[Rfam]
RNA sequence: UCUUAUUGAAGUAGAAAAGGCUCUCUACACACUCUUUUAUAGAGUACCUGAGAUGAUGGGUACGCCGUCUAUCCUUUAAGA
Numbered sequence: 001u002c003u004u005a006u007u008g009a010a011g012u013a014g015a016a017a018a019g020g021c022u023c024u025c026u027a028c029a030c031a032c033u034c035u036u037u038u039a040u041a042g043a044g045u046a047c048c049u050g051a052g053a054u055g056a057u058g059g060g061u062a063c064g065c066c067g068u069c070u071a072u073c074c075u076u077u078a079a080g081a
Base pairs, nucleotide, nucleotide: 001081002080003079004078005077008074011028012027013026014025015024019066020065021064030050031045032044033043034042055073056072057071058070059069
Background
Shown here is an 81-nucleotide RNA, a member of the family "skipping-rope RNA".